[Rfam]
RNA sequence: AUACUUUAAAACAACGAAAGCCCUGCCUCUCUUCCGUCCUUGCGGCUCCUAGACCGCGCCAGUGUGAAUCAAAGUUCUUACUGUUCG
Numbered sequence: 001a002u003a004c005u006u007u008a009a010a011a012c013a014a015c016g017a018a019a020g021c022c023c024u025g026c027c028u029c030u031c032u033u034c035c036g037u038c039c040u041u042g043c044g045g046c047u048c049c050u051a052g053a054c055c056g057c058g059c060c061a062g063u064g065u066g067a068a069u070c071a072a073a074g075u076u077c078u079u080a081c082u083g084u085u086c087g
Stems, first nucleotide, its partner, number of pairs: 035066002039062002041058005047052001

Background: Shown here is an 87-nucleotide RNA sequence from Paenibacillus catalpae, a member of the family "BsrC". Pairs were carried over by alignment from the consensus structure, which was predicted with CMfinder.